[Rfam]
RNA sequence: GCCGCAGUCGUCUAGGGGUCAGGACAUAAGCUUGUGGAAAUUUGUCUACAAAGCGCUUGAAACCGAGGUUCGAGUCCUCGCUGCGGCA
Dot-bracket structure: (((((((..((((........)))).(((((.......................)))))....(((((.......)))))))))))).
The record is an 88-nucleotide RNA sequence from [Torrubiella] hemipterigena, which matches "tRNA" in Rfam. The family's RNA type in Rfam is transfer RNA. Gene Ontology term of the family: triplet codon-amino acid adaptor activity. The base pairs follow the family's consensus structure, which is taken from published work. The match comes from Rfam's covariance-model search (51 bits).